[Rfam]
A member of the RNA family "SAM riboswitch aptamer (S box leader)" from Listeria kieliensis, 108 nucleotides long. The source organism's lineage runs through Bacteria, Bacillati, Bacilli, Caryophanales and Listeria. The match comes from Rfam's covariance-model search (98 bits).
RNA sequence: UUCUUAUCCAGAGUGGUGGAGGGAAAUGCCCUGUGAAACCCAGCAACCUAAGUGUUUUUUACUUAAGGUGCUAAUUCAUGCAGAACGAAAGGUUCUGAAAGAUGAGAA
Numbered sequence: 001u002u003c004u005u006a007u008c009c010a011g012a013g014u015g016g017u018g019g020a021g022g023g024a025a026a027u028g029c030c031c032u033g034u035g036a037a038a039c040c041c042a043g044c045a046a047c048c049u050a051a052g053u054g055u056u057u058u059u060u061a062c063u064u065a066a067g068g069u070g071c072u073a074a075u076u077c078a079u080g081c082a083g084a085a086c087g088a089a090a091g092g093u094u095c096u097g098a099a100a101g102a103u104g105a106g107a108a
Base pairs, nucleotide, nucleotide: 001108002107003106004105005104006103007102008101013041015040016039017038021031022030023029026079027078028077042072043071044070045069047068048067050064051063052062053061076100081097082096083095084094085093086092